About this RNA:
Shown here is a 53-nucleotide RNA from Fertoeibacter niger, a member of the family "terC RNA". Rfam classes the family as a cis-regulatory element.

[Rfam]
RNA sequence: CUAGCGGACCGGGCCCCUCUGACGACAUUGUGUCGUGAUGUCGGACCGCAUCG
Numbered sequence: 001c002u003a004g005c006g007g008a009c010c011g012g013g014c015c016c017c018u019c020u021g022a023c024g025a026c027a028u029u030g031u032g033u034c035g036u037g038a039u040g041u042c043g044g045a046c047c048g049c050a051u052c053g
Stems, first nucleotide, its partner, number of pairs: 006047002009044004022036006